[Rfam]
RNA sequence: GAGUAUAUCUCUGUGGCGAGGCUAACCCGUAAAAGGGGAGCCGUAGGGUAACCAACAGUUCGCAUCCUAUGUAUGGAGAGGAACGACGUAUGAACUGCGUGGAGUCACAGGGAUAUGACCCGAAGCCGGGUGAUCUAAGCGUGGGCAGGCUGAAGUUCUCCGAAAGGGGGAUGGAGGGCCGAACCGGUGAUGAUUUGCAAAUCUCUCGGAUGACCUAUGUUUAGUGGUAAAAGGCCAAUCGAACCCGGCAAUAGCUGGUU
Numbered sequence: 001g002a003g004u005a006u007a008u009c010u011c012u013g014u015g016g017c018g019a020g021g022c023u024a025a026c027c028c029g030u031a032a033a034a035g036g037g038g039a040g041c042c043g044u045a046g047g048g049u050a051a052c053c054a055a056c057a058g059u060u061c062g063c064a065u066c067c068u069a070u071g072u073a074u075g076g077a078g079a080g081g082a083a084c085g086a087c088g089u090a091u092g093a094a095c096u097g098c099g100u101g102g103a104g105u106c107a108c109a110g111g112g113a114u115a116u117g118a119c120c121c122g123a124a125g126c127c128g129g130g131u132g133a134u135c136u137a138a139g140c141g142u143g144g145g146c147a148g149g150c151u152g153a154a155g156u157u158c159u160c161c162g163a164a165a166g167g168g169g170g171a172u173g174g175a176g177g178g179c180c181g182a183a184c185c186g187g188u189g190a191u192g193a194u195u196u197g198c199a200a201a202u203c204u205c206u207c208g209g210a211u212g213a214c215c216u217a218u219g220u221u222u223a224g225u226g227g228u229a230a231a232a233g234g235c236c237a238a239u240c241g242a243a244c245c246c247g248g249c250a251a252u253a254g255c256u257g258g259u260u
Stems, first nucleotide, its partner, number of pairs: 005116013020042004026036002046053002058084004065077003087099004119258002122255001126248006135224011146212001148180004155172007184209004189205002192203002226236003
This 260-nucleotide part of an RNA from an uncultured archaeon belongs to the Rfam family "Archaeal large subunit ribosomal RNA". The sequence is in the family's curated seed alignment. The base pairs follow the family's consensus structure, which is taken from published work.